mir-393 microRNA precursor family: a 99-nucleotide RNA sequence from Protea cynaroides. The match comes from Rfam's covariance-model search (66 bits).
RNA sequence: AGAGGAGGAUUCCAAAAGGAUCGCAUGAUCCAUAAUCAAUCAGAAAUACUGCCUUACAAAGGAGACUUGGAUCAAUGCGAUCCCUUUGGAUGCUUCCUC
Numbered sequence: 001a002g003a004g005g006a007g008g009a010u011u012c013c014a015a016a017a018g019g020a021u022c023g024c025a026u027g028a029u030c031c032a033u034a035a036u037c038a039a040u041c042a043g044a045a046a047u048a049c050u051g052c053c054u055u056a057c058a059a060a061g062g063a064g065a066c067u068u069g070g071a072u073c074a075a076u077g078c079g080a081u082c083c084c085u086u087u088g089g090a091u092g093c094u095u096c097c098u099c
Stems, first nucleotide, its partner, number of pairs: 002099005008093001011090006018083004023078003026074006

Source information:
Rfam links the family to the GO terms RISC complex and miRNA-mediated post-transcriptional gene silencing. The pairing is the family consensus, mapped onto this sequence.